[Rfam]
RNA: Small nucleolar RNA SNORA14
RNA sequence: UAGGAUUCUUAAGAUUCCUAGGAAAUUUUCCUAAGAAUCUUAAGAUUCCUAGGAAUCCUAUGAAUCCUAGGAAAAUUGCAGGAAAUUCCACUUCGGAGAUUGUUUUCCUUAAACCUGCAGUGGAAUUUCCUGCAAUUUUC
Numbered sequence: 001u002a003g004g005a006u007u008c009u010u011a012a013g014a015u016u017c018c019u020a021g022g023a024a025a026u027u028u029u030c031c032u033a034a035g036a037a038u039c040u041u042a043a044g045a046u047u048c049c050u051a052g053g054a055a056u057c058c059u060a061u062g063a064a065u066c067c068u069a070g071g072a073a074a075a076u077u078g079c080a081g082g083a084a085a086u087u088c089c090a091c092u093u094c095g096g097a098g099a100u101u102g103u104u105u106u107c108c109u110u111a112a113a114c115c116u117g118c119a120g121u122g123g124a125a126u127u128u129c130c131u132g133c134a135a136u137u138u139u140c
Stems, first nucleotide, its partner, number of pairs: 003067004017053006024046001026044003071140003076135007092119001095118001097116002100113002